[Rfam]
Nucleotides: 091
Base pairs, nucleotide, nucleotide: 005079006078007077008076010074011073012072016068018066019065020064022062024060025059027057028056029055031053032052033051034050035049036048038045039044
Number, partner (000 for none) and nucleotide at each position: 001000c002000g003000u004000g005079g006078c007077a008076g009000c010074c011073g012072c013000c014000c015000u016068c017000c018066c019065u020064g021000u022062c023000c024060u025059c026000c027057a028056g029055g030000a031053g032052c033051u034050c035049a036048c037000u038045u039044g040000u041000g042000u043000c044039u045038g046000c047000c048036g049035u050034g051033a052032g053031c054000u055029c056028c057027u058000c059025g060024g061000g062022g063000c064020c065019a066018g067000a068016g069000c070000c071000c072012g073011u074010g075000u076008c077007u078006g079005c080000c081000u082000c083000a084000g085000u086000g087000c088000c089000a090000g091000c